[Rfam]
RNA: Purine riboswitch aptamer
RNA sequence: GUAUUAUAUUAAAAAAUACGUGAUAUAGUGUCGGAUAAUGGCCGACUGUUUCUACCCAGCACCGAUGUUGGACUAUCACAAAUGCGGGAUCUGUC
Number, nucleotide and partner (000 for none) at each position: 001g000002u000003a000004u000005u000006a000007u000008a000009u000010u000011a000012a000013a000014a000015a000016a000017u000018a000019c000020g079021u078022g077023a076024u075025a074026u000027a000028g000029u000030g046031u045032c044033g043034g042035a000036u000037a000038a000039u000040g000041g000042c034043c033044g032045a031046c030047u000048g000049u000050u000051u000052c000053u000054a000055c000056c071057c070058a069059g068060c067061a066062c000063c000064g000065a000066u061067g060068u059069u058070g057071g056072a000073c000074u025075a024076u023077c022078a021079c020080a000081a000082a000083u000084g000085c000086g000087g000088g000089a000090u000091c000092u000093g000094u000095c000